This 180-nucleotide RNA belongs to the Rfam family "Pseudomonas sRNA P1". About the family: This small RNA (sRNA) was computationally identified in the genome of the opportunistic pathogen Pseudomonas aeruginosa and its expression verified by northern blot analysis. There appears to be two related copies of P1 sRNA in the P.aeruginosa PA01 genome and both copies appear to be located upstream of predicted glutamine synthetase genes. This sRNA appears to be conserved amongst several Pseudomonas species. P1 has a predicted Rho independent terminator at the 3' end but the function of P1 is unknown. Pairs were carried over by alignment from the consensus structure, which was predicted with RNAalifold. It is one of the family's seed sequences.
RNA sequence: ACACCCGUAUUAUUGCUGUUAUGGGUUUGAACCGAGCUUAGCCUUGUUCAUUUUUUUACACAAUAGCCCUGUAAAAAAUUGAACACACCCCACUGAGCAACCUGAAAGAUCAACGUUUGGAGCCCCCUGAAAGGCCUUGAAAUGCCCCAAAAAUGGCCACCACGCCCCACUACAGGGCAU
Numbered sequence: 001a002c003a004c005c006c007g008u009a010u011u012a013u014u015g016c017u018g019u020u021a022u023g024g025g026u027u028u029g030a031a032c033c034g035a036g037c038u039u040a041g042c043c044u045u046g047u048u049c050a051u052u053u054u055u056u057u058a059c060a061c062a063a064u065a066g067c068c069c070u071g072u073a074a075a076a077a078a079u080u081g082a083a084c085a086c087a088c089c090c091c092a093c094u095g096a097g098c099a100a101c102c103u104g105a106a107a108g109a110u111c112a113a114c115g116u117u118u119g120g121a122g123c124c125c126c127c128u129g130a131a132a133g134g135c136c137u138u139g140a141a142a143u144g145c146c147c148c149a150a151a152a153a154u155g156g157c158c159a160c161c162a163c164g165c166c167c168c169a170c171u172a173c174a175g176g177g178c179a180u
Stems, first nucleotide, its partner, number of pairs: 023103005028096001034093001036091001041089001044085001046084003052078008162180001164178002167175001